[Rfam]
RNA: Pseudomonas sRNA P26
Organism: Oceanisphaera arctica
RNA sequence: UUUUAUAGCUUAGCGGCCUGAGAAAUCAGGCUAGGGCUGGUGAAUCUUUAUUCACCGGCCC
Numbered sequence: 001u002u003u004u005a006u007a008g009c010u011u012a013g014c015g016g017c018c019u020g021a022g023a024a025a026u027c028a029g030g031c032u033a034g035g036g037c038u039g040g041u042g043a044a045u046c047u048u049u050a051u052u053c054a055c056c057g058g059c060c061c
Base pairs, nucleotide, nucleotide: 015032016031017030018029022027035060036059037058038057039056040055041054042053043052044051